[Rfam]
RNA sequence: UGAGCAGGGAUUGUGUGUAUCGGCGUUGUGCUUUAAUAAUAUGCGCAUUGAAUCCGAAAGUGUUCCCUGCAAUAUAAAAAAUUCAGGGGAAGAUGGGCAGUUGUGUUUCAAGUUUGCCAUUGAAAUUUCUCAACAAUCAUCUUCCCCAUAUUU
Numbered sequence: 001u002g003a004g005c006a007g008g009g010a011u012u013g014u015g016u017g018u019a020u021c022g023g024c025g026u027u028g029u030g031c032u033u034u035a036a037u038a039a040u041a042u043g044c045g046c047a048u049u050g051a052a053u054c055c056g057a058a059a060g061u062g063u064u065c066c067c068u069g070c071a072a073u074a075u076a077a078a079a080a081a082u083u084c085a086g087g088g089g090a091a092g093a094u095g096g097g098c099a100g101u102u103g104u105g106u107u108u109c110a111a112g113u114u115u116g117c118c119a120u121u122g123a124a125a126u127u128u129c130u131c132a133a134c135a136a137u138c139a140u141c142u143u144c145c146c147c148a149u150a151u152u153u
Stems, first nucleotide, its partner, number of pairs: 004070007015046006086147011100134004
Rfam assigns this 153-nucleotide RNA sequence from Ricinus communis to the family "small nucleolar RNA snoR135". Gene Ontology terms of the family: RNA processing and nucleolus. Lineage of the source: Eukaryota > Streptophytina > Magnoliopsida > rosids > Ricinus.